[Rfam]
RNA sequence: AUAUUCUUAAUUACAACAACUUAUAUAAUGCCAAAAUAUGGUUGGCAAGUUUCUACCCAGUACCGUAAAUGCUGGACUAUAAGUAGGGAAAACAAACAA
Dot-bracket structure: ..................(((((((...((((((.......)))))).........((((((.......))))))..)))))))...............

The record is a 99-nucleotide RNA sequence from Carnobacterium antarcticum, which matches "Purine riboswitch aptamer" in Rfam. A search with the family's covariance model found it, with a score of 76 bits. Pairs were carried over by alignment from the consensus structure, which is taken from published work. Riboswitches are metabolite binding domains within certain messenger RNAs that serve as precision sensors for their corresponding targets. Allosteric rearrangement of mRNA structure is mediated by ligand binding, and this results in modulation of gene expression. A class of riboswitches that selectively recognises guanine and becomes saturated at concentrations as low as 5 nM. In Bacillus subtilis, this mRNA motif is located on at least five separate transcriptional units that together encode 17 genes that are mostly involved in purine transport and purine nucleotide biosynthesis. It has also been shown that some members of this family are specific for adenine instead. The organism belongs to Carnobacterium, within Bacteria.